Rfam assigns this 97-nucleotide RNA from Corynebacterium matruchotii to the family "Bacterial small signal recognition particle RNA". Pairs were carried over by alignment from the consensus structure, which is taken from published work. From the family's description: The signal recognition particle (SRP) is a universally conserved ribonucleoprotein involved in the co-translational targeting of proteins to membranes. Lineage of the source: Bacteria > Actinomycetota > Corynebacteriaceae > Corynebacterium > Corynebacterium matruchotii. The match comes from Rfam's covariance-model search (61 bits). By type it is a non-coding RNA gene.
[Rfam]
RNA sequence: UGCAGGACUUCGCAUGGCGUAUAUCUCGUGAACCCCCCCAGGGCAGGAAUGCAGCAAGGGUCAGCGGGCUCUGACGGGUGUGCGGAGUCCCCUUUUG
Numbered sequence: 001u002g003c004a005g006g007a008c009u010u011c012g013c014a015u016g017g018c019g020u021a022u023a024u025c026u027c028g029u030g031a032a033c034c035c036c037c038c039c040a041g042g043g044c045a046g047g048a049a050u051g052c053a054g055c056a057a058g059g060g061u062c063a064g065c066g067g068g069c070u071c072u073g074a075c076g077g078g079u080g081u082g083c084g085g086a087g088u089c090c091c092c093u094u095u096u097g
Stems, first nucleotide, its partner, number of pairs: 005090010015078001018076003025068005035060003043052003